[Rfam]
RNA sequence: AAGAUUAUGUGUAACUGACGAUGCUAGCGGAUAACCGCGGGGGAGCACAUAACAAGGAUUAGCCGGGUCGUCUGGGCAAUGGGG
Numbered sequence: 001a002a003g004a005u006u007a008u009g010u011g012u013a014a015c016u017g018a019c020g021a022u023g024c025u026a027g028c029g030g031a032u033a034a035c036c037g038c039g040g041g042g043g044a045g046c047a048c049a050u051a052a053c054a055a056g057g058a059u060u061a062g063c064c065g066g067g068u069c070g071u072c073u074g075g076g077c078a079a080u081g082g083g084g
Stems, first nucleotide, its partner, number of pairs: 005052008015042002017072005027038004060079001062077003
Description:
Shown here is an 84-nucleotide RNA sequence from Aquibacillus salsiterrae, a member of the family "ZMP/ZTP riboswitch aptamer (pfl RNA motif)". Taxonomically the source falls in Aquibacillus (Bacteria, Bacillota, Bacilli, Bacillaceae). The match comes from Rfam's covariance-model search (52 bits). The base pairs follow the family's consensus structure, which is taken from published work.